[Rfam]
The record is an 89-nucleotide sequence from Ladona fulva, which matches "mir-282 microRNA precursor family" in Rfam. The literature on the family includes a 2009 paper in BMC Genomics by Li et al., "Direct sequencing and expression analysis of a large number of miRNAs in Aedes aegypti and a multi-species survey of novel mosquito miRNAs".
RNA sequence: AGGUGAUCUUGAGUCAGCCUCUCCUAGGCUUUGUCUGUGUCAAUUUAAUAUCAGACAUUGCCUAGAAGAGGUUAAAUUCAAGUCUUCAA
Numbered sequence: 001a002g003g004u005g006a007u008c009u010u011g012a013g014u015c016a017g018c019c020u021c022u023c024c025u026a027g028g029c030u031u032u033g034u035c036u037g038u039g040u041c042a043a044u045u046u047a048a049u050a051u052c053a054g055a056c057a058u059u060g061c062c063u064a065g066a067a068g069a070g071g072u073u074a075a076a077u078u079c080a081a082g083u084c085u086u087c088a089a
Stems, first nucleotide, its partner, number of pairs: 012077001014075001016073005027062003032057005